RNA sequence: AACGUAGGUAGAGGUUGCAUUUUUCAUAAGUAGGAUGACGGAUGUGUCAGGAACAGAGGAACUCAUCAGAAAGGGAAAGAUGCCGAAAGGAUGAGAACUCCUGAAGGCUCAUUCUUGGGCAUGACAUUAAGAGUGGCAUGACUGUCAUCGCAAGAUGGAGAGCUAUCUGAUUU
Number, nucleotide and partner (000 for none) at each position: 001a000002a000003c000004g000005u000006a168007g167008g166009u165010a164011g163012a000013g000014g000015u000016u000017g083018c082019a081020u080021u079022u078023u077024u076025c075026a000027u000028a000029a000030g000031u000032a000033g000034g067035a066036u065037g064038a063039c000040g000041g000042a000043u000044g000045u000046g000047u000048c000049a000050g000051g000052a000053a000054c000055a000056g000057a000058g000059g000060a000061a000062c000063u038064c037065a036066u035067c034068a000069g000070a000071a000072a000073g000074g000075g025076a024077a023078a022079g021080a020081u019082g018083c017084c000085g000086a000087a116088a115089g114090g113091a112092u111093g110094a109095g108096a000097a000098c106099u000100c000101c000102u000103g000104a000105a000106g098107g000108c095109u094110c093111a092112u091113u090114c089115u088116u087117g143118g142119g000120c140121a139122u138123g137124a000125c135126a134127u133128u000129a000130a000131g000132a000133g127134u126135g125136g000137c123138a122139u121140g120141a000142c118143u117144g000145u158146c157147a156148u155149c154150g000151c000152a000153a000154g149155a148156u147157g146158g145159a000160g000161a000162g000163c011164u010165a009166u008167c007168u006169g000170a000171u000172u000173u000